[Rfam]
Nucleotides: 066
Base pairs, nucleotide, nucleotide: 001066003064004063005062006061007060008059009058010057011056013054014053015052016051020041022039023038024037025036026035027034028033
Number, partner (000 for none) and nucleotide at each position: 001066a002000u003064a004063g005062u006061c007060c008059a009058a010057u011056c012000a013054u014053a015052u016051c017000g018000a019000a020041g021000g022039c023038u024037u025036a026035u027034g028033c029000u030000a031000c032000g033028g034027c035026a036025u037024a038023g039022g040000g041020u042000g043000u044000u045000g046000a047000u048000g049000u050000a051016g052015g053014u054013a055000c056011g057010g058009u059008u060007g061006g062005a063004c064003u065000u066001u

Source information
Shown here is a 66-nucleotide RNA sequence, a member of the family "DUF3800-VIII RNA". By type it is a small RNA. From the family's description: Bacteroidetes, Cyanobacteria, Firmicutes, Planctomycetes (1 example), Proteobacteria, Tenericutes (1 example). The sequence is in the family's curated seed alignment.